glmS glucosamine-6-phosphate activated ribozyme aptamer: a 149-nucleotide RNA from Syntrophobotulus glycolicus.
RNA sequence: AAGAAAAAUAUAGCGCCAGAACCUUAUCAGGUUGACGAGGAAGAGGUUAAUCGAAAAUUUCGGCGGAUGCCUCUCGGUGGCUUGUCAUCGACAGAUCGGUUCCAAAACCGAAAAGUAAUUUUUGGGACAAAAGCCGGUCAGCAAGAGAA
Numbered sequence: 001a002a003g004a005a006a007a008a009u010a011u012a013g014c015g016c017c018a019g020a021a022c023c024u025u026a027u028c029a030g031g032u033u034g035a036c037g038a039g040g041a042a043g044a045g046g047u048u049a050a051u052c053g054a055a056a057a058u059u060u061c062g063g064c065g066g067a068u069g070c071c072u073c074u075c076g077g078u079g080g081c082u083u084g085u086c087a088u089c090g091a092c093a094g095a096u097c098g099g100u101u102c103c104a105a106a107a108c109c110g111a112a113a114a115g116u117a118a119u120u121u122u123u124g125g126g127a128c129a130a131a132a133g134c135c136g137g138u139c140a141g142c143a144a145g146a147g148a149a
Stems, first nucleotide, its partner, number of pairs: 020033005042074005051063004075090005094139007108125007
Annotation:
Pairs were carried over by alignment from the consensus structure, which is taken from published work.